[Rfam]
A member of the RNA family "Small nucleolar RNA SNORA57" from Cavia porcellus, 148 nucleotides long. A reference for the family is Vitali et al. (2003), "Identification of 13 novel human modification guide RNAs", Nucleic Acids Res. The family has 26 seed sequences and 1,736 matches in Rfam 15.1. The base pairs follow the family's consensus structure, which was predicted with PFOLD.
RNA sequence: CCUACCGUUUCCUGGCAGAGACCAGGAGUGCUGUUCCAAUCUCUGUUAUAUAGGAAGGCAGAAGGAAAGGGUUCUGGCUGCCUCAGUGUCAAGUCUAACACCAGUGGCUUCCCAUCUGCAGGUUCUAUCUUCAAAAAUCAGACUAUAU
Numbered sequence: 001c002c003u004a005c006c007g008u009u010u011c012c013u014g015g016c017a018g019a020g021a022c023c024a025g026g027a028g029u030g031c032u033g034u035u036c037c038a039a040u041c042u043c044u045g046u047u048a049u050a051u052a053g054g055a056a057g058g059c060a061g062a063a064g065g066a067a068a069g070g071g072u073u074c075u076g077g078c079u080g081c082c083u084c085a086g087u088g089u090c091a092a093g094u095c096u097a098a099c100a101c102c103a104g105u106g107g108c109u110u111c112c113c114a115u116c117u118g119c120a121g122g123u124u125c126u127a128u129c130u131u132c133a134a135a136a137a138u139c140a141g142a143c144u145a146u147a148u
Stems, first nucleotide, its partner, number of pairs: 001058003005054001016045006025036002086138002089135001101122002104119004

From the family's description: U99 belongs to the H/ACA class of snoRNAs which are thought to guide the sites of modification of uridines to pseudouridines, the target for this family is unknown.